[Rfam]
RNA sequence: GUAGUAUAUGGCAAUGAUGUCUGCCCUAAACCGCCCGCAAAUUUUAUUUGUAGCUGAUGACGUCUACUUUAAU
Numbered sequence: 001g002u003a004g005u006a007u008a009u010g011g012c013a014a015u016g017a018u019g020u021c022u023g024c025c026c027u028a029a030a031c032c033g034c035c036c037g038c039a040a041a042u043u044u045u046a047u048u049u050g051u052a053g054c055u056g057a058u059g060a061c062g063u064c065u066a067c068u069u070u071a072a073u
Base pairs, nucleotide, nucleotide: 010025011024012023013022016064017063018062019061020060021059033054034053
RNA: Fluoride riboswitch aptamer (crcB RNA motif)